RNA sequence: UGCUCGAUGAUUUGUUGCCUUCGAGGCAUUAUACGCUAUUCUGAACUUUAAAGUGAAAGAUGCAACUUUCUAAUGAGAGCU
Numbered sequence: 001u002g003c004u005c006g007a008u009g010a011u012u013u014g015u016u017g018c019c020u021u022c023g024a025g026g027c028a029u030u031a032u033a034c035g036c037u038a039u040u041c042u043g044a045a046c047u048u049u050a051a052a053g054u055g056a057a058a059g060a061u062g063c064a065a066c067u068u069u070c071u072a073a074u075g076a077g078a079g080c081u
Base pairs, nucleotide, nucleotide: 002080003079004078005077
The record is an 81-nucleotide RNA sequence from Cuscuta europaea, which matches "Small nucleolar RNA U54" in Rfam. A reference for the family is Chen et al. (2003), "The high diversity of snoRNAs in plants: identification and comparative study of 120 snoRNA genes from Oryza sativa", Nucleic Acids Res. A search with the family's covariance model found it, with a score of 47 bits.